[Rfam]
RNA sequence: GAGACGUGAUGAACUAACUAUUGGUCCGUGUUUCUGAUCACUGUGACUGAGAAAACAAGUUUCUAUCCUUCUGAUCUC
Dot-bracket structure: ((((......................................................................))))
The record is a 78-nucleotide RNA sequence from Cuscuta australis, which matches "Small nucleolar RNA SNORD18" in Rfam. On this family, see Giorgi et al., EMBO J 2001: "Release of U18 snoRNA from its host intron requires interaction of Nop1p with the Rnt1p endonuclease". The match comes from Rfam's covariance-model search (42 bits).